[Rfam]
RNA sequence: GCUGCAGAGGUGCCAGCUGCAGUGGGGGAGGCACUGCCAGGGCUGCCCACUCUGCUUAGCCAGCAGGUGCCAAGAACAGG
Numbered sequence: 001g002c003u004g005c006a007g008a009g010g011u012g013c014c015a016g017c018u019g020c021a022g023u024g025g026g027g028g029a030g031g032c033a034c035u036g037c038c039a040g041g042g043c044u045g046c047c048c049a050c051u052c053u054g055c056u057u058a059g060c061c062a063g064c065a066g067g068u069g070c071c072a073a074g075a076a077c078a079g080g
Base pairs, nucleotide, nucleotide: 002079003078004077009071010070011069012068013067014066016064017063018062019061020059021056022055023054024053025052026051027050030047031046032045033044034042035041
Dot-bracket structure: .(((....((((((.((((((((((((..((((((.....)).))))..)))))))..).)))).)))))).....))).